The family of this 182-nucleotide RNA sequence from Jeotgalibacillus soli is "Lysine riboswitch aptamer". The base pairs follow the family's consensus structure, which is taken from published work. The organism belongs to Jeotgalibacillus, within Bacteria. Rfam links the family to the GO term lysine biosynthetic process.
RNA sequence: AGUGGUGAUAGAGGUGCGAGACUCAAAAGUAGCACUGCGGAGGAAGAUGAAUUCCACUGAUGCAGCGUGAAAGGGACGAUCGCCGAAGUAAAUGACCUGUUCAUCCAGUCAUUCGCUGGUUCUGCAUUGAAGAAAUGCAGAGCUGUCAAGAUGUUUAAUCAUCUUGGAGAGCUAUCUCACCU
Number, nucleotide and partner (000 for none) at each position: 001a000002g000003u000004g000005g000006u000007g176008a175009u174010a173011g172012a000013g000014g000015u000016g083017c082018g081019a080020g000021a000022c000023u076024c075025a000026a000027a000028a000029g000030u000031a000032g068033c067034a000035c065036u064037g063038c062039g061040g000041a000042g000043g000044a000045a000046g000047a000048u000049g000050a000051a000052u000053u000054c000055c000056a000057c000058u000059g000060a000061u039062g038063c037064a036065g035066c000067g033068u032069g000070a000071a000072a000073g000074g000075g024076a023077c000078g000079a000080u019081c018082g017083c016084c000085g000086a000087a117088g116089u115090a000091a113092a112093u111094g110095a109096c108097c000098u000099g000100u000101u000102c000103a000104u000105c000106c000107a000108g096109u095110c094111a093112u092113u091114c000115g089116c088117u087118g144119g143120u142121u141122c140123u139124g138125c137126a136127u135128u134129g000130a000131a000132g000133a000134a128135a127136u126137g125138c124139a123140g122141a121142g120143c119144u118145g000146u167147c166148a165149a164150g163151a162152u161153g000154u000155u000156u000157a000158a000159u000160c000161a152162u151163c150164u149165u148166g147167g146168a000169g000170a000171g000172c011173u010174a009175u008176c007177u000178c000179a000180c000181c000182u000